[Rfam]
RNA sequence: AGUCUGUUUCAGGGCGGGGUGUAAGUCCCCACCGGCGGUGAAGCGCCUUUGUGCGACAAGUCCGCGAGCCAUUGUGCAGAAUCGGUUGGAAUCCGAUACCGACGGUAUAGUCCGGAGGAAAGAAACAGGUG
Numbered sequence: 001a002g003u004c005u006g007u008u009u010c011a012g013g014g015c016g017g018g019g020u021g022u023a024a025g026u027c028c029c030c031a032c033c034g035g036c037g038g039u040g041a042a043g044c045g046c047c048u049u050u051g052u053g054c055g056a057c058a059a060g061u062c063c064g065c066g067a068g069c070c071a072u073u074g075u076g077c078a079g080a081a082u083c084g085g086u087u088g089g090a091a092u093c094c095g096a097u098a099c100c101g102a103c104g105g106u107a108u109a110g111u112c113c114g115g116a117g118g119a120a121a122g123a124a125a126c127a128g129g130u131g
Base pairs, nucleotide, nucleotide: 003129004128005127006126007125008124009123010122017029018028019027031111032110033101034100035065036064037063038062060099061098068077069076081097082096083095084094085093103114104113105112
This 131-nucleotide sequence from Ligaoa zhengdingensis belongs to the Rfam family "FMN riboswitch aptamer (RFN element)". Taxonomically the source falls in Ligaoa (Bacteria, Bacillota, Eubacteriales, Oscillospiraceae).